[Rfam]
A member of the RNA family "7SK RNA" from Sagittarius serpentarius, 342 nucleotides long. Clan: 7SK clan. 7SK was discovered as an abundant small nuclear RNA in the mid-70s but a possible function has only recently been suggested. Two independent studies have found that 7SK RNA binds the CDK9/cyclin T complex (known as elongation factor P-TEFb). P-TEFb activates transcription by phosphorylating the C-terminal domain of RNA polymerase II. This process is negatively regulated by the 7SK RNP. The secondary structure of 7SK RNA shown here was proposed by Wasserman and Steitz on the basis of chemical modification and enzymatic cleavage experiments. The match comes from Rfam's covariance-model search (218 bits).

RNA sequence: UGAUGUGAGGGCAAUCUGGCUGUGACAUCUGUCACCCUAUUGAUCACCACGGUUGAUUUGGCUGAUCUGGCUGGCUAGGCGGGUGUCCCCUUCCUCCCUCACCACUCCACGUGCGUCCCUCCCGAAGCUGCAUGCUCGGUCGAAAAGGACGACCUUCCCUGAUAGAGACUUACCGUUCAUCGGUAAAGGGUAUACGGUAGCUGCGCUCCCCUGCUAGAACCUCCAAACAAGCUCAAGUAAAUACACUGUUGUCCACUGCAUUUGUAUAAAUACAAAGGUGGCUGAUCAGACUAUCUGAGGUUCUCAGAAAUUCAAGCAUGUAUCUCCCAGAUUGUGUUUUUU
Numbered sequence: 001u002g003a004u005g006u007g008a009g010g011g012c013a014a015u016c017u018g019g020c021u022g023u024g025a026c027a028u029c030u031g032u033c034a035c036c037c038u039a040u041u042g043a044u045c046a047c048c049a050c051g052g053u054u055g056a057u058u059u060g061g062c063u064g065a066u067c068u069g070g071c072u073g074g075c076u077a078g079g080c081g082g083g084u085g086u087c088c089c090c091u092u093c094c095u096c097c098c099u100c101a102c103c104a105c106u107c108c109a110c111g112u113g114c115g116u117c118c119c120u121c122c123c124g125a126a127g128c129u130g131c132a133u134g135c136u137c138g139g140u141c142g143a144a145a146a147g148g149a150c151g152a153c154c155u156u157c158c159c160u161g162a163u164a165g166a167g168a169c170u171u172a173c174c175g176u177u178c179a180u181c182g183g184u185a186a187a188g189g190g191u192a193u194a195c196g197g198u199a200g201c202u203g204c205g206c207u208c209c210c211c212u213g214c215u216a217g218a219a220c221c222u223c224c225a226a227a228c229a230a231g232c233u234c235a236a237g238u239a240a241a242u243a244c245a246c247u248g249u250u251g252u253c254c255a256c257u258g259c260a261u262u263u264g265u266a267u268a269a270a271u272a273c274a275a276a277g278g279u280g281g282c283u284g285a286u287c288a289g290a291c292u293a294u295c296u297g298a299g300g301u302u303c304u305c306a307g308a309a310a311u312u313c314a315a316g317c318a319u320g321u322a323u324c325u326c327c328c329a330g331a332u333u334g335u336g337u338u339u340u341u342u
Stems, first nucleotide, its partner, number of pairs: 002107002005102007014092001018090002024087010035074002037070003042067004047061002119167003122139004127135002140162003147158003200287001202285001206281002209278001211277002222269001227265005308342003313336002316333001319329002